RNA sequence: GGUCACGAGUACCAGCGCCAAGCCCCGGCUCGCUGGUCAGCAACCCCCACGUCACGGCGGGGUGCUCCGGGAGAUGACCUGGCCGCGUUGAGGGACGCGGCAAGCGUGAUGU
Numbered sequence: 001g002g003u004c005a006c007g008a009g010u011a012c013c014a015g016c017g018c019c020a021a022g023c024c025c026c027g028g029c030u031c032g033c034u035g036g037u038c039a040g041c042a043a044c045c046c047c048c049a050c051g052u053c054a055c056g057g058c059g060g061g062g063u064g065c066u067c068c069g070g071g072a073g074a075u076g077a078c079c080u081g082g083c084c085g086c087g088u089u090g091a092g093g094g095a096c097g098c099g100g101c102a103a104g105c106g107u108g109a110u111g112u
Base pairs, nucleotide, nucleotide: 001079002078003077004076009038011037012036013035014034015033016032021030022029039066040065041064044062045061046060048057082101083100084099085098086097087096088095089094
RNA: SAM (S-adenosyl methionine) riboswitch aptamer